[Rfam]
RNA sequence: CGGGAGAACCGACGUUAGGGAAUUCGGCAAGUUAGUCCCGUACCUUCGGAAGAAGGGAUGCCUGCUUUGGAGAAAGCAGGUCGCAGUGACUCGGGCGCUCCGACUGUCUAGUAACAACACAGGUGACCGCAAAUCCGCAAGGACUCGUACGGUCACUGAAUCCUGCCCAGUGCGGGUAUCUGAACACCUCGUACAAGAGGACGAAGGACCCGUCAACGGCGGGGGUAACUAUGACCCUCUUAAGGUAGCGUAGUACCUUGCCGCUUCAGUAGCGGCUUGCAUGAAUGGAUAAACGAGAGCGCCACUGUCCCAACGUUGGACCCGGUGAACUGUACGUUCCAGUGCGGAGUCUGGAGA
Numbered sequence: 001c002g003g004g005a006g007a008a009c010c011g012a013c014g015u016u017a018g019g020g021a022a023u024u025c026g027g028c029a030a031g032u033u034a035g036u037c038c039c040g041u042a043c044c045u046u047c048g049g050a051a052g053a054a055g056g057g058a059u060g061c062c063u064g065c066u067u068u069g070g071a072g073a074a075a076g077c078a079g080g081u082c083g084c085a086g087u088g089a090c091u092c093g094g095g096c097g098c099u100c101c102g103a104c105u106g107u108c109u110a111g112u113a114a115c116a117a118c119a120c121a122g123g124u125g126a127c128c129g130c131a132a133a134u135c136c137g138c139a140a141g142g143a144c145u146c147g148u149a150c151g152g153u154c155a156c157u158g159a160a161u162c163c164u165g166c167c168c169a170g171u172g173c174g175g176g177u178a179u180c181u182g183a184a185c186a187c188c189u190c191g192u193a194c195a196a197g198a199g200g201a202c203g204a205a206g207g208a209c210c211c212g213u214c215a216a217c218g219g220c221g222g223g224g225g226u227a228a229c230u231a232u233g234a235c236c237c238u239c240u241u242a243a244g245g246u247a248g249c250g251u252a253g254u255a256c257c258u259u260g261c262c263g264c265u266u267c268a269g270u271a272g273c274g275g276c277u278u279g280c281a282u283g284a285a286u287g288g289a290u291a292a293a294c295g296a297g298a299g300c301g302c303c304a305c306u307g308u309c310c311c312a313a314c315g316u317u318g319g320a321c322c323c324g325g326u327g328a329a330c331u332g333u334a335c336g337u338u339c340c341a342g343u344g345c346g347g348a349g350u351c352u353g354g355a356g357a
Stems, first nucleotide, its partner, number of pairs: 001324004009319008018310003035059005044049001060081009082086001094303007101295002105119003122157008130147001134143003160290004165220003170217002172213005179208003187200004221239006240244001260276006338355005